RNA sequence: AGAGUCCUUCGGGGUCGGGUGAAAAUCCCAGCCGGCGGUAAUGAACAAAUUGUUCCGAGCCCGCGACGGGGAAGCAGUGUGAAGCACGUUUCCCCCUGAUUUGGUGCACAUUCCAAAGCCGACAGUGAAAGUCUGGAUGGGAGAAGGAUAGC
Dot-bracket structure: ...(((((((......(((.......))).[[((((((....................[[))))...((((((................))))))....(((((........)))))]])).(((.....]]))).......)))))))...
Numbered sequence: 001a002g003a004g005u006c007c008u009u010c011g012g013g014g015u016c017g018g019g020u021g022a023a024a025a026u027c028c029c030a031g032c033c034g035g036c037g038g039u040a041a042u043g044a045a046c047a048a049a050u051u052g053u054u055c056c057g058a059g060c061c062c063g064c065g066a067c068g069g070g071g072a073a074g075c076a077g078u079g080u081g082a083a084g085c086a087c088g089u090u091u092c093c094c095c096c097u098g099a100u101u102u103g104g105u106g107c108a109c110a111u112u113c114c115a116a117a118g119c120c121g122a123c124a125g126u127g128a129a130a131g132u133c134u135g136g137a138u139g140g141g142a143g144a145a146g147g148a149u150a151g152c
Stems, first nucleotide, its partner, number of pairs: 004149007017029003031132002033121002035064004059119002068095006100117005123135003